The record is a 141-nucleotide RNA from Burkholderiales bacterium GJ-E10, which matches "Molybdenum/Tungsten riboswitch aptamer (Moco RNA motif)" in Rfam.

[Rfam]
RNA sequence: UCACGGCAAUCCCUCCGAGGCGCAUAGCCUGCGGUUUCCUUCGGGAGAUACGGCUUUGCGUCCGUGAUCUUCGGAUCAACAGGGUGGACGGGGAAACGCGUCCGCCUCCCGCGCUUGGAAAGGAGAACGAACCAUGCCCCC
Numbered sequence: 001u002c003a004c005g006g007c008a009a010u011c012c013c014u015c016c017g018a019g020g021c022g023c024a025u026a027g028c029c030u031g032c033g034g035u036u037u038c039c040u041u042c043g044g045g046a047g048a049u050a051c052g053g054c055u056u057u058g059c060g061u062c063c064g065u066g067a068u069c070u071u072c073g074g075a076u077c078a079a080c081a082g083g084g085u086g087g088a089c090g091g092g093g094a095a096a097c098g099c100g101u102c103c104g105c106c107u108c109c110c111g112c113g114c115u116u117g118g119a120a121a122g123g124a125g126a127a128c129g130a131a132c133c134a135u136g137c138c139c140c141c
Base pairs, nucleotide, nucleotide: 003135006132013125014124015123016122019062020061021060022059023058024057026055027054028053029052033049035047036046037045038044065078066077067076068075082107083106084105085104086103087102088101089100090099092097108118109117

It scores 71 bits against the family's covariance model. Its family is annotated with regulation of gene expression, tungstate binding and molybdenum ion binding in the Gene Ontology.